[Rfam]
RNA: Streptomyces RNA 6925
Organism: Streptomyces sp. WAC06614
RNA sequence: UGAGUGAUGCCGCAGCCGGUGUGCCCCGUAGGAAGGGCCGGCGCGGUGAUGAUGGGUCUCUCCGGCCGUUGCCUCGGCUGGAGAUAUGGCUCUUCGCGUUCGGCGCCCGGGAGUUGCCUCUCCCGGGCGCCGACU
Numbered sequence: 001u002g003a004g005u006g007a008u009g010c011c012g013c014a015g016c017c018g019g020u021g022u023g024c025c026c027c028g029u030a031g032g033a034a035g036g037g038c039c040g041g042c043g044c045g046g047u048g049a050u051g052a053u054g055g056g057u058c059u060c061u062c063c064g065g066c067c068g069u070u071g072c073c074u075c076g077g078c079u080g081g082a083g084a085u086a087u088g089g090c091u092c093u094u095c096g097c098g099u100u101c102g103g104c105g106c107c108c109g110g111g112a113g114u115u116g117c118c119u120c121u122c123c124c125g126g127g128c129g130c131c132g133a134c135u
Base pairs, nucleotide, nucleotide: 002097006050010046011045012044013043015042016041017040018039019038024035052093054091055090057089058088062081063080064079065078066077067076068075101132102131103130104129105128106127107126108125109124110123111122112121113120